[Rfam]
RNA sequence: GUUUAUCUGCGAGUUUUGUGCUUUACACAAAACAUCGUUUAUUGUAUGUAGUUUUGCUUUGCAAAACUACUUGAAAAAACUUUUUCGCAAAUUAAUAUUUGCUGCAAAAGUUUUUAUAGGG
Numbered sequence: 001g002u003u004u005a006u007c008u009g010c011g012a013g014u015u016u017u018g019u020g021c022u023u024u025a026c027a028c029a030a031a032a033c034a035u036c037g038u039u040u041a042u043u044g045u046a047u048g049u050a051g052u053u054u055u056g057c058u059u060u061g062c063a064a065a066a067c068u069a070c071u072u073g074a075a076a077a078a079a080c081u082u083u084u085u086c087g088c089a090a091a092u093u094a095a096u097a098u099u100u101g102c103u104g105c106a107a108a109a110g111u112u113u114u115u116a117u118a119g120g121g
Base pairs, nucleotide, nucleotide: 011036012035013033014032015031016030017029018028019027020026048070049069050068051067052066053065055063056062075115076114077113078112079111080110081109082108083107084106087102088101089100090099091098092097
Overview:
This 121-nucleotide RNA sequence from Treponema denticola belongs to the Rfam family "TD-1 RNA". The family's consensus secondary structure is taken from published work. Taxonomically the source falls in Treponema denticola (Bacteria, Pseudomonadati, Spirochaetota, Treponematales). For this family Rfam cites "Identification of 22 candidate structured RNAs in bacteria using the CMfinder comparative genomics pipeline" (Weinberg et al., Nucleic Acids Res, 2007).